[Rfam]
Record summary
A member of the RNA family "Nematode snoRNA ceN39" from Panagrolaimus superbus, 129 nucleotides long. Lineage of the source: Eukaryota > Metazoa > Tylenchina > Panagrolaimomorpha > Panagrolaimus. The match comes from Rfam's covariance-model search (46 bits). Pairs were carried over by alignment from the consensus structure, which was predicted with RNAalifold. By type it is an H/ACA-box small nucleolar RNA.
RNA sequence: UAGGCAGAUAGGAACCAUGUAAAACCCCUAUGGUUUACAUGGGCCGAAACCCUGCCAAUAUAAAAGACGAAAAAUGGUCGCACGGUGCUUUAUCAUAAGCAUUGGGCAUUACCCUCCUUUGCGACACUC
Numbered sequence: 001u002a003g004g005c006a007g008a009u010a011g012g013a014a015c016c017a018u019g020u021a022a023a024a025c026c027c028c029u030a031u032g033g034u035u036u037a038c039a040u041g042g043g044c045c046g047a048a049a050c051c052c053u054g055c056c057a058a059u060a061u062a063a064a065a066g067a068c069g070a071a072a073a074a075u076g077g078u079c080g081c082a083c084g085g086u087g088c089u090u091u092a093u094c095a096u097a098a099g100c101a102u103u104g105g106g107c108a109u110u111a112c113c114c115u116c117c118u119u120u121g122c123g124a125c126a127c128u129c
Stems, first nucleotide, its partner, number of pairs: 003056005011045002015042009026033002069116002076113003080107002083104005089099003